Overview: Shown here is an 87-nucleotide sequence from Gossypium harknessii, a member of the family "MIR7486 microRNA precursor family". It scores 92 bits against the family's covariance model. Its family is annotated with RISC complex and miRNA-mediated post-transcriptional gene silencing in the Gene Ontology.
RNA sequence: CACGUCAGCGCGAGAUGCUGACGUGGAAGGAAAUCGCGUCCUUGAGUGAGCGAUUUCCUUUCACGUCAGCAUCUCGCGCUGACGUGG
Numbered sequence: 001c002a003c004g005u006c007a008g009c010g011c012g013a014g015a016u017g018c019u020g021a022c023g024u025g026g027a028a029g030g031a032a033a034u035c036g037c038g039u040c041c042u043u044g045a046g047u048g049a050g051c052g053a054u055u056u057c058c059u060u061u062c063a064c065g066u067c068a069g070c071a072u073c074u075c076g077c078g079c080u081g082a083c084g085u086g087g
Stems, first nucleotide, its partner, number of pairs: 001086021023064015041046001
Dot-bracket structure: (((((((((((((((((((((.(((((((((((((((...(....)...))))))))))))))).))))))))))))))))))))).